[Rfam]
Nucleotides: 203
Stems, first nucleotide, its partner, number of pairs: 013059004018054001061101003065097002068094004073089003120197012133151006
Number, partner (000 for none) and nucleotide at each position: 001000a002000c003000a004000c005000u006000g007000a008000a009000a010000g011000g012000a013059g014058g015057u016056g017000a018054u019000c020000c021000g022000a023000a024000a025000g026000u027000a028000u029000g030000a031000g032000u033000a034000c035000u036000u037000c038000c039000g040000g041000g042000a043000c044000u045000c046000g047000u048000g049000a050000g051000g052000u053000g054018g055000c056016u057015g058014c059013u060000u061101c062100c063099u064000a065097g066096c067000a068094g069093c070092c071091c072000u073089u074088a075087c076000c077000c078000g079000c080000u081000g082000u083000g084000c085000g086000c087075g088074u089073a090000a091071g092070g093069g094068c095000g096066g097065c098000g099063g100062g101061g102000c103000a104000a105000u106000u107000c108000a109000g110000a111000g112000c113000a114000g115000u116000c117000a118000c119000c120197c121196g122195g123194c124193c125192c126191c127190u128189g129188g130187g131186c132000c133151c134150g135149c136148c137147g138146g139000c140000c141000g142000u143000c144000c145000u146138c147137c148136g149135g150134c151133g152000c153000c154000u155000g156000u157000u158000c159000g160000c161000a162000u163000c164000c165000c166000g167000c168000g169000a170000g171000g172000g173000a174000g175000c176000a177000g178000c179000a180000g181000g182000a183000g184000c185000a186131g187130c188129c189128c190127a191126g192125g193124g194123g195122c196121c197120g198000u199000u200000c201000c202000c203000a
The record is a 203-nucleotide RNA sequence from Streptomyces sp. 846.5, which matches "Actinobacteria sRNA Ms_IGR-5" in Rfam. Rfam classes the family as a small RNA. Pairs were carried over by alignment from the consensus structure.